[Rfam]
RNA sequence: GAACAGAAGGUCUGUGGUUGCAAGUCCAUGCCAGUCGCAGGCAAAAGGACCCACGUAACACAGCCAAAAGUGUUGUGGAGCAUGGUGCGGCUUAGGAGUAAGUCCUGCCGGGCAAUAAUGCUCGAGAGAAGUGGCGUGACGGCGAACCCGGAGCAAACCUUCCAGCAGGCGAGUGUGGGGGCAAAGACCAGGUCAGCUUCUGUUC
Number, nucleotide and partner (000 for none) at each position: 001g205002a204003a203004c202005a201006g200007a199008a198009g197010g000011u000012c196013u195014g194015u190016g189017g188018u187019u186020g000021c000022a000023a000024g000025u000026c000027c000028a176029u175030g174031c041032c000033a092034g091035u090036c089037g088038c087039a086040g000041g031042c000043a000044a000045a000046a000047g000048g000049a000050c085051c084052c000053a000054c000055g000056u000057a000058a000059c077060a076061c075062a074063g073064c072065c000066a000067a000068a000069a000070g000071u000072g064073u063074u062075g061076u060077g059078g000079a000080g000081c000082a000083u183084g051085g050086u039087g038088c037089g036090g035091c034092u033093u000094a000095g000096g000097a000098g000099u000100a000101a000102g000103u000104c169105c168106u167107g166108c165109c124110g123111g122112g121113c120114a000115a000116u000117a000118a000119u000120g113121c112122u111123c110124g109125a000126g000127a000128g162129a161130a160131g159132u000133g000134g000135c000136g154137u153138g000139a000140c150141g149142g148143c000144g000145a000146a000147c000148c142149c141150g140151g000152a000153g137154c136155a000156a000157a000158c000159c131160u130161u129162c128163c000164a000165g108166c107167a106168g105169g104170c000171g000172a000173g000174u030175g029176u028177g000178g000179g000180g000181g000182c000183a083184a000185a000186g019187a018188c017189c016190a015191g000192g000193u000194c014195a013196g012197c009198u008199u007200c006201u005202g004203u003204u002205c001